[Rfam]
RNA sequence: UGAGGUGACCGGGUGGUCGCGGCACGACGGUUCGUCGACGUGUCGAGGAAAGUCGGGGCUCCACCGGGCAGAGUGCUGGCGCGAGCCAGGUCGGGGCGACCUGACGGACGUGCAACAGAGAGAGACCGCCGAUGGAAUCGUUCGCCUUUCGAGGUGAACGGUUCACAGGCAAGGCUGAAACGGUGCGGUAAGAGCGCACCAGCGGCGUCGGUGACGGCGUCGGCUCGGUAAACCCCACUCGGAGCAAGGUCGAGCAGGAAGAUGGGCGGCCCGUCCGUUUCUUCCGGGUAGACCGCACAGAUGGAUGGCCACCGGGCGCCGGACUUCGGUCCGACACCUACAGAACCCCGCUUACAGGCCACCUCGCCAU
Numbered sequence: 001u002g003a004g005g006u007g008a009c010c011g012g013g014u015g016g017u018c019g020c021g022g023c024a025c026g027a028c029g030g031u032u033c034g035u036c037g038a039c040g041u042g043u044c045g046a047g048g049a050a051a052g053u054c055g056g057g058g059c060u061c062c063a064c065c066g067g068g069c070a071g072a073g074u075g076c077u078g079g080c081g082c083g084a085g086c087c088a089g090g091u092c093g094g095g096g097c098g099a100c101c102u103g104a105c106g107g108a109c110g111u112g113c114a115a116c117a118g119a120g121a122g123a124g125a126c127c128g129c130c131g132a133u134g135g136a137a138u139c140g141u142u143c144g145c146c147u148u149u150c151g152a153g154g155u156g157a158a159c160g161g162u163u164c165a166c167a168g169g170c171a172a173g174g175c176u177g178a179a180a181c182g183g184u185g186c187g188g189u190a191a192g193a194g195c196g197c198a199c200c201a202g203c204g205g206c207g208u209c210g211g212u213g214a215c216g217g218c219g220u221c222g223g224c225u226c227g228g229u230a231a232a233c234c235c236c237a238c239u240c241g242g243a244g245c246a247a248g249g250u251c252g253a254g255c256a257g258g259a260a261g262a263u264g265g266g267c268g269g270c271c272c273g274u275c276c277g278u279u280u281c282u283u284c285c286g287g288g289u290a291g292a293c294c295g296c297a298c299a300g301a302u303g304g305a306u307g308g309c310c311a312c313c314g315g316g317c318g319c320c321g322g323a324c325u326u327c328g329g330u331c332c333g334a335c336a337c338c339u340a341c342a343g344a345a346c347c348c349c350g351c352u353u354a355c356a357g358g359c360c361a362c363c364u365c366g367c368c369a370u
Base pairs, nucleotide, nucleotide: 001366002365003364004363005362006361007360009358010357011355012313013312014311015310016309017308018307020045021044022043023042024041025040026039028037050353051352052351054350055349056348057347058346059244060243061242062241066272067271068270069269071240072239073238074237075236076089077088078087079086080085090105092103093102094101095100106235107234110233111232112229113228126174127173128170129169130168133165134164135163136162182200183199184198185197186196187195202224203222204221205220206219207218208217209216210215248294249293250292251291257285258284259283260282261281262280263277264276265275266274267273
Source information: The record is a 370-nucleotide RNA sequence from Ilumatobacter coccineus, which matches "Bacterial RNase P class A" in Rfam. Rfam's curators write: Ribonuclease P (RNase P) is a ubiquitous endoribonuclease, found in archaea, bacteria and eukarya as well as chloroplasts and mitochondria. Gene Ontology terms of the family: tRNA processing, ribonuclease P activity and dimeric ribonuclease P complex.